Shown here is a 107-nucleotide RNA from Plutella xylostella, a member of the family "mir-8517 microRNA precursor family".
A search with the family's covariance model found it, with a score of 72 bits.
The base pairs follow the family's consensus structure, which was predicted with RNAalifold.

RNA sequence: UUAUUGAACGUUUUAGCUAUUGGACUGUUUUGUUCCUCUCUGUCAAAGAACAAUUUGUUCAAUGAAAGAGAGGGACAAAACAGUUAAAUAGUUAAAACGUUAUCAAA
Numbered sequence: 001u002u003a004u005u006g007a008a009c010g011u012u013u014u015a016g017c018u019a020u021u022g023g024a025c026u027g028u029u030u031u032g033u034u035c036c037u038c039u040c041u042g043u044c045a046a047a048g049a050a051c052a053a054u055u056u057g058u059u060c061a062a063u064g065a066a067a068g069a070g071a072g073g074g075a076c077a078a079a080a081c082a083g084u085u086a087a088a089u090a091g092u093u094a095a096a097a098c099g100u101u102a103u104c105a106a107a
Base pairs, nucleotide, nucleotide: 004106005105006104011097012096013095014094015093016092017091018090019089020088021087023085024084025083026082027081028080029069030068031067033065034064049059050058051057052056